[Rfam]
RNA: Glycine riboswitch aptamer
RNA sequence: CCUCUGGAGAGACUCAGAGAUGAGCACCGAAGGAGCAAGAUAAUUUAAAUUUUAAAUUAUUGAAACUCUCAGGUAAAAGGACAGGGG
Numbered sequence: 001c002c003u004c005u006g007g008a009g010a011g012a013c014u015c016a017g018a019g020a021u022g023a024g025c026a027c028c029g030a031a032g033g034a035g036c037a038a039g040a041u042a043a044u045u046u047a048a049a050u051u052u053u054a055a056a057u058u059a060u061u062g063a064a065a066c067u068c069u070c071a072g073g074u075a076a077a078a079g080g081a082c083a084g085g086g087g
Base pairs, nucleotide, nucleotide: 001087002086003085004084005083006082013024014023015022016021026074027073028072029070030069033068034067035066039061040060041059042058043057044056045055046054